[Rfam]
RNA sequence: AAACCUGCUCAAAACAAAAAAUCUGUUCUUAUCAGUUUAAUAUCUGAUACGUCCCCUACCCGGGGACUACAUAUUAUAUUGAUUUUUGGAUCACGGAGCUGGAGCCGGGGCUUGCUCCGUCCACUCCACGCAUCGGCCUGGUAUUGCAGUGUCUCCAGGAACGGUGCGCUUCCU
Numbered sequence: 001a002a003a004c005c006u007g008c009u010c011a012a013a014a015c016a017a018a019a020a021a022u023c024u025g026u027u028c029u030u031a032u033c034a035g036u037u038u039a040a041u042a043u044c045u046g047a048u049a050c051g052u053c054c055c056c057u058a059c060c061c062g063g064g065g066a067c068u069a070c071a072u073a074u075u076a077u078a079u080u081g082a083u084u085u086u087u088g089g090a091u092c093a094c095g096g097a098g099c100u101g102g103a104g105c106c107g108g109g110g111c112u113u114g115c116u117c118c119g120u121c122c123a124c125u126c127c128a129c130g131c132a133u134c135g136g137c138c139u140g141g142u143a144u145u146g147c148a149g150u151g152u153c154u155c156c157a158g159g160a161a162c163g164g165u166g167c168g169c170u171u172c173c174u
Base pairs, nucleotide, nucleotide: 001006030049031048032047033046034045035044051067052066053065054064055063056062095127096126097125098124101121102120107118108117109116110115130167131166132165133164134163135162137159138158139157140156141155
Source information: U2 spliceosomal RNA: a 174-nucleotide sequence from Labeo rohita. Lineage of the source: Eukaryota > Cypriniphysae > Cyprinoidei > Labeonini > Labeo. Gene Ontology terms of the family: U2 snRNP, mRNA branch site recognition and pre-mRNA branch point binding. Clan: U2 clan.